[Rfam]
RNA sequence: UAUACAGUUUUCUAGGGUUCCACAGAAUUUGCUAAUUUCUGGUUCGGUCCAAGAGAAAACGCACACUAUAUUGUGUGUACACGGAAGGAUAAAAGCCUGGGAGUU
Number, nucleotide and partner (000 for none) at each position: 001u000002a000003u000004a000005c000006a000007g060008u059009u058010u057011u056012c055013u000014a000015g050016g049017g000018u000019u000020c047021c046022a044023c041024a040025g039026a038027a037028u000029u000030u000031g000032c000033u000034a000035a000036u000037u027038u026039c025040u024041g023042g000043u000044u022045c000046g021047g020048u000049c016050c015051a000052a000053g000054a000055g012056a011057a010058a009059a008060c007061g078062c077063a076064c075065a074066c073067u000068a000069u000070a000071u000072u000073g066074u065075g064076u063077g062078u061079a000080c100081a000082c103083g000084g000085a000086a098087g097088g096089a000090u000091a000092a000093a000094a000095g000096c088097c087098u086099g000100g080101g000102a000103g082104u000105u000

The record is a 105-nucleotide RNA sequence from Clostridium sp. Maddingley MBC34-26, which matches "Guanidine-I riboswitch aptamer" in Rfam. A reference for the family is Reiss et al. (2017), "Structural Basis for Ligand Binding to the Guanidine-I Riboswitch", Structure. Rfam's curators write: This family represents a conserved RNA structure found upstream of the ykkC and yxkD genes in Bacillus subtilis and related genes in other bacteria. The function of this family is unclear although it has been suggested that it may function to switch on efflux pumps and detoxification systems in response to harmful environmental molecules. Lineage of the source: Bacteria > Bacillati > Bacillota > Clostridiaceae > Clostridium.